[Rfam]
RNA sequence: UGAAAUUAGUGGAGUAGUGGUCUCUACACUUUUUGAAAAUUUUUGGAAAUACAAAAAAAAAAAAUGAAAAACAAAAAUUUCAGGUGAGAUUCAACUCCUCCAUCUUAUUUCA
Dot-bracket structure: .......(((((((..((....((..(((((..................................................))))).))....).).))))).)).......

The record is a 112-nucleotide sequence from Rhodnius prolixus, which matches "mir-1175 microRNA precursor family" in Rfam.
Its family is annotated with RISC complex and miRNA-mediated post-transcriptional gene silencing in the Gene Ontology.
Lineage of the source: Eukaryota > Eumetazoa > Pterygota > Paraneoptera > Rhodnius.